The record is a 35-nucleotide RNA sequence, which matches "L31-Firmicutes ribosomal protein leader" in Rfam. Rfam's curators put it in the seed alignment. The family is grouped with related families in Rfam's "Ribosomal Protein L31 Leader clan".
[Rfam]
Nucleotides: 035
Base pairs, nucleotide, nucleotide: 001026002025003024004023005022006021007020008019
Number, partner (000 for none) and nucleotide at each position: 001026c002025u003024a004023u005022g006021g007020u008019u009000u010000g011000c012000a013000a014000a015000u016000a017000a018000a019008a020007a021006c022005c023004a024003u025002g026001g027000c028000g029000g030000a031000a032000g033000g034000a035000g